[Rfam]
RNA sequence: ACUAGUUAAGGGCAAACCAAGGCGAAAGUUUGGGACGCAAAGUCACGGAUCUAAUGUGUAUUUGAGCGAUGAUGGCCGGACUACCGAA
Numbered sequence: 001a002c003u004a005g006u007u008a009a010g011g012g013c014a015a016a017c018c019a020a021g022g023c024g025a026a027a028g029u030u031u032g033g034g035a036c037g038c039a040a041a042g043u044c045a046c047g048g049a050u051c052u053a054a055u056g057u058g059u060a061u062u063u064g065a066g067c068g069a070u071g072a073u074g075g076c077c078g079g080a081c082u083a084c085c086g087a088a
Base pairs, nucleotide, nucleotide: 012038013037017033018032019031020030022029023028041082042081043080044079046078047077048076049073050072051071056067057066059064
RNA: c-di-GMP-I riboswitch aptamer
Organism: Bacillus sp. B1-b2